[Rfam]
A member of the RNA family "msiK RNA" from Nocardia panacis, 59 nucleotides long. The base pairs follow the family's consensus structure, which is taken from published work. NCBI's taxonomy places the organism under Bacteria, Bacillati, Actinomycetota, Mycobacteriales, Nocardia.
RNA sequence: CGCCGACACCCUUGUACUCGGAUCGUCCGGCACGUUCCUGCCGGUGAAUGGGAUGUGAU
Numbered sequence: 001c002g003c004c005g006a007c008a009c010c011c012u013u014g015u016a017c018u019c020g021g022a023u024c025g026u027c028c029g030g031c032a033c034g035u036u037c038c039u040g041c042c043g044g045u046g047a048a049u050g051g052g053a054u055g056u057g058a059u
Base pairs, nucleotide, nucleotide: 010051011050013048015046016045027044028043029042030041031040032039